[Rfam]
RNA sequence: GCAACAAAGUGAAAAAGCAUAUAUAAUAAUGCGACGUUUGCCGAAAGGCAAACUCGGCAGAUAAACAGUGAGGCUGAAUUCCUGCCGAACUGUUUAUCAUAC
Numbered sequence: 001g002c003a004a005c006a007a008a009g010u011g012a013a014a015a016a017g018c019a020u021a022u023a024u025a026a027u028a029a030u031g032c033g034a035c036g037u038u039u040g041c042c043g044a045a046a047g048g049c050a051a052a053c054u055c056g057g058c059a060g061a062u063a064a065a066c067a068g069u070g071a072g073g074c075u076g077a078a079u080u081c082c083u084g085c086c087g088a089a090c091u092g093u094u095u096a097u098c099a100u101a102c
Stems, first nucleotide, its partner, number of pairs: 001018002032056003036053007060098010072086002

The record is a 102-nucleotide RNA sequence from Treponema denticola, which matches "TD-2 RNA" in Rfam. The family has 36 seed sequences and 310 matches in Rfam 15.1. The sequence is in the family's curated seed alignment. The literature on the family includes a 2007 paper in Nucleic Acids Res by Weinberg et al., "Identification of 22 candidate structured RNAs in bacteria using the CMfinder comparative genomics pipeline". By type it is a small RNA.